[Rfam]
RNA sequence: UUUGACAGCUUAGCCGCCUGAAUAGGCGAGGGCUGGUGACUUUUCGGUCACCGGCCU
Numbered sequence: 001u002u003u004g005a006c007a008g009c010u011u012a013g014c015c016g017c018c019u020g021a022a023u024a025g026g027c028g029a030g031g032g033c034u035g036g037u038g039a040c041u042u043u044u045c046g047g048u049c050a051c052c053g054g055c056c057u
Stems, first nucleotide, its partner, number of pairs: 015028004031056010
Dot-bracket structure: ..............((((......))))..((((((((((......)))))))))).